[Rfam]
RNA sequence: ACAACAUUCGGACUGUCAAUCUACCGAGCAAUUACACCCGCUCGGUGGAAGAUCUGCCCUUUGUAGU
Numbered sequence: 001a002c003a004a005c006a007u008u009c010g011g012a013c014u015g016u017c018a019a020u021c022u023a024c025c026g027a028g029c030a031a032u033u034a035c036a037c038c039c040g041c042u043c044g045g046u047g048g049a050a051g052a053u054c055u056g057c058c059c060u061u062u063g064u065a066g067u
Stems, first nucleotide, its partner, number of pairs: 004064003010058002015053003020049010